[Rfam]
RNA sequence: AUUAAAGUAUUGGGCUCAUUUUUGUUCGGUCGUAAUGUGACUGAAUGGAAGAGUGCAUUGGCUAAAU
Numbered sequence: 001a002u003u004a005a006a007g008u009a010u011u012g013g014g015c016u017c018a019u020u021u022u023u024g025u026u027c028g029g030u031c032g033u034a035a036u037g038u039g040a041c042u043g044a045a046u047g048g049a050a051g052a053g054u055g056c057a058u059u060g061g062c063u064a065a066a067u
Base pairs, nucleotide, nucleotide: 001067002066003065006063007062008061011057012056014054015053016052017051020050021049022048023047024046025045026044027043028042029041030040031039032038
Annotation: A member of the RNA family "MIR5241 microRNA precursor family" from Medicago truncatula, 67 nucleotides long. The source organism's lineage runs through Eukaryota, Viridiplantae, Embryophyta, rosids and Medicago. Pairs were carried over by alignment from the consensus structure, which was predicted with RNAalifold.